Notes:
Rfam assigns this 228-nucleotide part of an RNA from Blastomyces gilchristii to the family "Eukaryotic large subunit ribosomal RNA". Rfam's curators put it in the seed alignment. Taxonomically the source falls in Blastomyces gilchristii (Eukaryota, leotiomyceta, Eurotiomycetes, Onygenales).
RNA sequence: CACUUAUAAUCAGAGUCAGCUGUGAGAAUUCAGUAGACAUUUAUUAUCUAUGCACUUCUUCACAGGUGAACCAGUGUCAGUUUCAACAGCCAGUCAAAGACUUCUGAAAUGUGUCAUCUCUCAGAACAUCUUAUAGUCGGGGAUGCAAUGCAGUCAGUUAAGACUGAGAAAUGCACUUCAGUACAGACACUGACUUAAUAGUUGUAAGUGAUUCAUCUUGAAACACAG
Numbered sequence: 001c002a003c004u005u006a007u008a009a010u011c012a013g014a015g016u017c018a019g020c021u022g023u024g025a026g027a028a029u030u031c032a033g034u035a036g037a038c039a040u041u042u043a044u045u046a047u048c049u050a051u052g053c054a055c056u057u058c059u060u061c062a063c064a065g066g067u068g069a070a071c072c073a074g075u076g077u078c079a080g081u082u083u084c085a086a087c088a089g090c091c092a093g094u095c096a097a098a099g100a101c102u103u104c105u106g107a108a109a110u111g112u113g114u115c116a117u118c119u120c121u122c123a124g125a126a127c128a129u130c131u132u133a134u135a136g137u138c139g140g141g142g143a144u145g146c147a148a149u150g151c152a153g154u155c156a157g158u159u160a161a162g163a164c165u166g167a168g169a170a171a172u173g174c175a176c177u178u179c180a181g182u183a184c185a186g187a188c189a190c191u192g193a194c195u196u197a198a199u200a201g202u203u204g205u206a207a208g209u210g211a212u213u214c215a216u217c218u219u220g221a222a223a224c225a226c227a228g
Base pairs, nucleotide, nucleotide: 001210002209003208004207005206006205007204008203009202010201012199017068018067020065021064022063023062024061072192073191074190075189076188077187078186213228216225